[Rfam]
RNA sequence: AUCUUAUCCAGAGAGACUGAGGGAAUUGGCCCUAUGAUGUCUCAGCAGCGGGCUCUUACGAGUACUGUGCUAAAUCCAACAAGCUAUUAUGCUUGAUAGAUAAGUG
Numbered sequence: 001a002u003c004u005u006a007u008c009c010a011g012a013g014a015g016a017c018u019g020a021g022g023g024a025a026u027u028g029g030c031c032c033u034a035u036g037a038u039g040u041c042u043c044a045g046c047a048g049c050g051g052g053c054u055c056u057u058a059c060g061a062g063u064a065c066u067g068u069g070c071u072a073a074a075u076c077c078a079a080c081a082a083g084c085u086a087u088u089a090u091g092c093u094u095g096a097u098a099g100a101u102a103a104g105u106g
Stems, first nucleotide, its partner, number of pairs: 003104006013043005021032003026079004044071004049067002052063004075098001080095005
Rfam assigns this 106-nucleotide RNA from Macrococcoides bohemicum to the family "SAM riboswitch aptamer (S box leader)". Pairs were carried over by alignment from the consensus structure, which is taken from published work.